[Rfam]
RNA: Archaeal large subunit ribosomal RNA, nucleotides 631 to 889
Organism: Candidatus Methanomassiliicoccus intestinalis
RNA sequence: GAGUUCUGAUCAGUGGCGAGAUUAAAAUAUUGAAUAUUGGAAUCAAAGGGAAACCAACAAGCACGCAACCUUCGGGUGAGGUGCGAGGUGUGCUCGCCUGGAGUCACUGGUGGGAUACCCGAAGCCAGUUGAUCUAUGCGUGGGCAGGAUGAAGCCCUUCGAAAGGGGGGUGGAGGUCCGAACAGGUGAUGAUGUGCAAAUCUUUCUGAUGACCUGCGUAUAGGGGUGAAAGGCCAAUCUAAACUGGAAAUAGCUGGUU
Numbered sequence: 001g002a003g004u005u006c007u008g009a010u011c012a013g014u015g016g017c018g019a020g021a022u023u024a025a026a027a028u029a030u031u032g033a034a035u036a037u038u039g040g041a042a043u044c045a046a047a048g049g050g051a052a053a054c055c056a057a058c059a060a061g062c063a064c065g066c067a068a069c070c071u072u073c074g075g076g077u078g079a080g081g082u083g084c085g086a087g088g089u090g091u092g093c094u095c096g097c098c099u100g101g102a103g104u105c106a107c108u109g110g111u112g113g114g115a116u117a118c119c120c121g122a123a124g125c126c127a128g129u130u131g132a133u134c135u136a137u138g139c140g141u142g143g144g145c146a147g148g149a150u151g152a153a154g155c156c157c158u159u160c161g162a163a164a165g166g167g168g169g170g171u172g173g174a175g176g177u178c179c180g181a182a183c184a185g186g187u188g189a190u191g192a193u194g195u196g197c198a199a200a201u202c203u204u205u206c207u208g209a210u211g212a213c214c215u216g217c218g219u220a221u222a223g224g225g226g227u228g229a230a231a232g233g234c235c236a237a238u239c240u241a242a243a244c245u246g247g248a249a250a251u252a253g254c255u256g257g258u259u
Stems, first nucleotide, its partner, number of pairs: 005115003009111009020044004026038004048055002061084004068077003087098004118257002121254001125247006134223011145211001147179004154171007183208004188204002191202002225235003